A member of the RNA family "Lysine riboswitch aptamer" from Clostridium sp. CAG:138, 195 nucleotides long. The literature on the family includes a 2003 paper in Nucleic Acids Res by Rodionov et al., "Regulation of lysine biosynthesis and transport genes in bacteria: yet another RNA riboswitch?". Rfam links the family to the GO term lysine biosynthetic process. Rfam's curators write: Riboswitches are metabolite binding domains within certain messenger RNAs that serve as precision sensors for their corresponding targets.

[Rfam]
RNA sequence: UAUGAAGAUAGAGGCGCAGAAGUCGAGGUAAGCUUUCGCAAAACGGGCGGUUCCGGCGAAAGGCUGAAUGCGGCUCUUGCCGAAAGUGCGGCGGGGAAUCCGCUUCCCCCGUGCUUGGGCGCAGCAGCUCAGUGCGCUGCGACUGUCAUCGCGGGUCGUUUUCGGCUUGGGUACUGAUGAUGCGCUAUUCACGCG
Numbered sequence: 001u002a003u004g005a006a007g008a009u010a011g012a013g014g015c016g017c018a019g020a021a022g023u024c025g026a027g028g029u030a031a032g033c034u035u036u037c038g039c040a041a042a043a044c045g046g047g048c049g050g051u052u053c054c055g056g057c058g059a060a061a062g063g064c065u066g067a068a069u070g071c072g073g074c075u076c077u078u079g080c081c082g083a084a085a086g087u088g089c090g091g092c093g094g095g096g097a098a099u100c101c102g103c104u105u106c107c108c109c110c111g112u113g114c115u116u117g118g119g120c121g122c123a124g125c126a127g128c129u130c131a132g133u134g135c136g137c138u139g140c141g142a143c144u145g146u147c148a149u150c151g152c153g154g155g156u157c158g159u160u161u162u163c164g165g166c167u168u169g170g171g172u173a174c175u176g177a178u179g180a181u182g183c184g185c186u187a188u189u190c191a192c193g194c195g
Base pairs, nucleotide, nucleotide: 007189008188009187010186011185016080017079018078019077021075022074023073024072031065032064033063034062035061036060084116085115086114087113088112089111090110091109093107094106095105117144118143120141121140122139123138124137125136146180147179148178149177150176151175